[Rfam]
RNA sequence: CGAGGUCACAUGGAGUAACCGUUUCGGUGAAAGACGACCUUCGCAAAAGGAGAUAUGCUUCCCUUGGUGAAAGCCCAUAAAACUGCCCAUCGACGACUUUUACACGGACGCUGCUUGCAUGGCGGGGGAUUGCGCUGACCUCGUUUCAUGUGUAAGGUCAAUGUAGUUUGGACGCGCACCUACAACUUAACUAUGCGGAGGGCGAAUAAUUUUUAUGACAAGC
Numbered sequence: 001c002g003a004g005g006u007c008a009c010a011u012g013g014a015g016u017a018a019c020c021g022u023u024u025c026g027g028u029g030a031a032a033g034a035c036g037a038c039c040u041u042c043g044c045a046a047a048a049g050g051a052g053a054u055a056u057g058c059u060u061c062c063c064u065u066g067g068u069g070a071a072a073g074c075c076c077a078u079a080a081a082a083c084u085g086c087c088c089a090u091c092g093a094c095g096a097c098u099u100u101u102a103c104a105c106g107g108a109c110g111c112u113g114c115u116u117g118c119a120u121g122g123c124g125g126g127g128g129a130u131u132g133c134g135c136u137g138a139c140c141u142c143g144u145u146u147c148a149u150g151u152g153u154a155a156g157g158u159c160a161a162u163g164u165a166g167u168u169u170g171g172a173c174g175c176g177c178a179c180c181u182a183c184a185a186c187u188u189a190a191c192u193a194u195g196c197g198g199a200g201g202g203c204g205a206a207u208a209a210u211u212u213u214u215a216u217g218a219c220a221a222g223c
Base pairs, nucleotide, nucleotide: 004039005038006037007036019027020026066075067074068073085203086202087201088200090198091197092196094195095159096158097157098156099155101154102153103152104151105150110118111117121145122144123143124142125141126140127139163194164193165192166191167190169189170181171180
Dot-bracket structure: ...((((...........((.....))........))))..........................(((....))).........((((.(((.((((((.(((((....((.....))..(((((((...........)))))))....))))))))))...(((((.(((........)).......)))))))))).))))....................